A member of the RNA family "TD-1 RNA" from Treponema denticola, 125 nucleotides long. Taxonomically the source falls in Treponema denticola (Bacteria, Pseudomonadati, Spirochaetota, Treponemataceae). A reference for the family is Weinberg et al. (2007), "Identification of 22 candidate structured RNAs in bacteria using the CMfinder comparative genomics pipeline", Nucleic Acids Res. The family's RNA type in Rfam is cis-regulatory element.

[Rfam]
RNA sequence: GUUUAUCUUCGAGUUUUGUGCAAAGCACAAAACAUCGCAUUAUUGUAUGUAGUUUUGCAAAAGCAAAACUACUUGAAAAAACUUUUUUCGCAAAUUGAUAUUUGCUGCAAAAAGUUUUUAUUGGA
Number, nucleotide and partner (000 for none) at each position: 001g000002u000003u000004u000005a000006u000007c000008u000009u000010c000011g036012a035013g033014u032015u031016u030017u029018g028019u027020g026021c000022a000023a000024a000025g000026c020027a019028c018029a017030a016031a015032a014033c013034a000035u012036c011037g000038c000039a000040u000041u000042a000043u000044u000045g000046u000047a000048u000049g072050u071051a070052g069053u068054u067055u000056u065057g064058c000059a000060a000061a000062a000063g000064c057065a056066a000067a054068a053069c052070u051071a050072c049073u000074u000075g000076a000077a119078a118079a117080a116081a115082c114083u113084u112085u111086u110087u109088u000089c000090g105091c104092a103093a102094a101095u100096u000097g000098a000099u000100a095101u094102u093103u092104g091105c090106u000107g000108c000109a087110a086111a085112a084113a083114g082115u081116u080117u079118u078119u077120a000121u000122u000123g000124g000125a000